Overview: Clostridiales-1 RNA: a 159-nucleotide sequence from Clostridiales bacterium CHKCI001. The family's RNA type in Rfam is small RNA.
[Rfam]
RNA sequence: UAAAAGUCCCAGACAGCAGCCAUGGGCCAUCCCGUGUAAACACGGUCUGUUUCAUGGAUAUUGGACGGGCUAACCUGUAUGAACAAGAAGAGCGACAGAUCCGAUUGUGAAUACAGGCAGCGAUGUCGAGAGUGCACAGCACGAAGACAUCGACUUUCA
Numbered sequence: 001u002a003a004a005a006g007u008c009c010c011a012g013a014c015a016g017c018a019g020c021c022a023u024g025g026g027c028c029a030u031c032c033c034g035u036g037u038a039a040a041c042a043c044g045g046u047c048u049g050u051u052u053c054a055u056g057g058a059u060a061u062u063g064g065a066c067g068g069g070c071u072a073a074c075c076u077g078u079a080u081g082a083a084c085a086a087g088a089a090g091a092g093c094g095a096c097a098g099a100u101c102c103g104a105u106u107g108u109g110a111a112u113a114c115a116g117g118c119a120g121c122g123a124u125g126u127c128g129a130g131a132g133u134g135c136a137c138a139g140c141a142c143g144a145a146g147a148c149a150u151c152g153a154c155u156u157u158c159a
Stems, first nucleotide, its partner, number of pairs: 001159001003157005008069003015062002018059001020057007028049002032045005074117007083108004090101002093098001121152007132142004
Dot-bracket structure: (.((((((((....((.(.(((((((.((..(((((....)))))..)).))))))).).))....)))....(((((((..((((...((.(....).))...))))..)))))))...(((((((....((((...))))...)))))))))))).)